This 73-nucleotide sequence from Papaver somniferum belongs to the Rfam family "Small nucleolar RNA Z105". The match comes from Rfam's covariance-model search (54 bits). The family's RNA type in Rfam is C/D-box small nucleolar RNA. Rfam links the family to the GO terms nucleolus and RNA processing. The family's consensus secondary structure was predicted with CMfinder.
RNA sequence: GCGUUGUGAUGAUGAAAGUAUUUCAAACCGUCUAAAUUAUCUGAAUGGAUAAAAAACCUCCUACUCAUUCUGA
Numbered sequence: 001g002c003g004u005u006g007u008g009a010u011g012a013u014g015a016a017a018g019u020a021u022u023u024c025a026a027a028c029c030g031u032c033u034a035a036a037u038u039a040u041c042u043g044a045a046u047g048g049a050u051a052a053a054a055a056a057c058c059u060c061c062u063a064c065u066c067a068u069u070c071u072g073a
Stems, first nucleotide, its partner, number of pairs: 006068004029048001032043001